[Rfam]
RNA sequence: UGAGGCAGAUCUGAAAAGCGAGCCGCCCUGCGGCUCCACCCAAGGUGCAAGCCGAGCCCUGUGAACAGGGGCACCCCCGCUCCGGGGGCAUACCCCGUCAGGGGCUAUCGGCGAACCUCUCAGGUUCCGAUGACAGAUGGGGAGGA
Numbered sequence: 001u002g003a004g005g006c007a008g009a010u011c012u013g014a015a016a017a018g019c020g021a022g023c024c025g026c027c028c029u030g031c032g033g034c035u036c037c038a039c040c041c042a043a044g045g046u047g048c049a050a051g052c053c054g055a056g057c058c059c060u061g062u063g064a065a066c067a068g069g070g071g072c073a074c075c076c077c078c079g080c081u082c083c084g085g086g087g088g089c090a091u092a093c094c095c096c097g098u099c100a101g102g103g104g105c106u107a108u109c110g111g112c113g114a115a116c117c118u119c120u121c122a123g124g125u126u127c128c129g130a131u132g133a134c135a136g137a138u139g140g141g142g143a144g145g146a
Stems, first nucleotide, its partner, number of pairs: 006141001009138005020036004038125003042120001045119001047117001051112005
The family of this 146-nucleotide RNA from Streptomyces sp. SID8455 is "Glycine riboswitch aptamer". The organism belongs to Streptomyces, within Bacteria. The match comes from Rfam's covariance-model search (41 bits).